This 135-nucleotide RNA from Macaca nemestrina belongs to the Rfam family "Small nucleolar RNA SNORA69". Rfam's curators write: U69 is a member of the H/ACA class of small nucleolar RNAs (snoRNAs) which act as guides in the the modification of uridines to pseudouridines.

[Rfam]
RNA sequence: AAAGCAAGCGUGCAUUAAGUGCUUCAUUUUGUGAAAUACUAAAUACUGCACAUCUAUCCCUGCUGAAAGAAAAGCUGGGUUAAUGAUUUUUGAUUUGUCUUGUGAGAGUAAAAUCAUGACAUUGACAUGACAAUU
Numbered sequence: 001a002a003a004g005c006a007a008g009c010g011u012g013c014a015u016u017a018a019g020u021g022c023u024u025c026a027u028u029u030u031g032u033g034a035a036a037u038a039c040u041a042a043a044u045a046c047u048g049c050a051c052a053u054c055u056a057u058c059c060c061u062g063c064u065g066a067a068a069g070a071a072a073a074g075c076u077g078g079g080u081u082a083a084u085g086a087u088u089u090u091u092g093a094u095u096u097g098u099c100u101u102g103u104g105a106g107a108g109u110a111a112a113a114u115c116a117u118g119a120c121a122u123u124g125a126c127a128u129g130a131c132a133a134u135u
Base pairs, nucleotide, nucleotide: 003064004063005062006061008059018047019046020045021044023042024041075129077128079126080125081124082123083122084121085120091116092115093114094113095112096111098107099106100105